[Rfam]
The record is a 131-nucleotide sequence from Otolemur garnettii, which matches "Small nucleolar RNA SNORA72" in Rfam.
NCBI's taxonomy places the organism under Eukaryota, Opisthokonta, Chordata, Primates, Otolemur.
U72 is a member of the H/ACA class of snoRNAs. The snoRNA gene is located in intron 4 of the ribosomal L30 protein gene in human, mouse and chicken.
The literature on the family includes a 1997 paper in Genes Dev by Ganot et al., "The family of box ACA small nucleolar RNAs is defined by an evolutionarily conserved secondary structure and ubiquitous sequence elements essential for RNA accumulation".
Rfam links the family to the GO terms nucleolus and RNA processing.
The base pairs follow the family's consensus structure, which was predicted with PFOLD.
It scores 102 bits against the family's covariance model.
RNA sequence: CAGUGAAUAUUCCCGCUACUCUUAAUUUGGAAUAAUUGGGACAGGCUAAACAUUUGCUAUAUAAAAACAUGCACGUGUCCACAGACUUAGUGCUUUCCCUAGGUUUGGUUUUAUAAAUGCUGGUGAUAAGC
Numbered sequence: 001c002a003g004u005g006a007a008u009a010u011u012c013c014c015g016c017u018a019c020u021c022u023u024a025a026u027u028u029g030g031a032a033u034a035a036u037u038g039g040g041a042c043a044g045g046c047u048a049a050a051c052a053u054u055u056g057c058u059a060u061a062u063a064a065a066a067a068c069a070u071g072c073a074c075g076u077g078u079c080c081a082c083a084g085a086c087u088u089a090g091u092g093c094u095u096u097c098c099c100u101a102g103g104u105u106u107g108g109u110u111u112u113a114u115a116a117a118u119g120c121u122g123g124u125g126a127u128a129a130g131c
Stems, first nucleotide, its partner, number of pairs: 003057003016044002020040003024036001026034001066124001068122002071120002082107009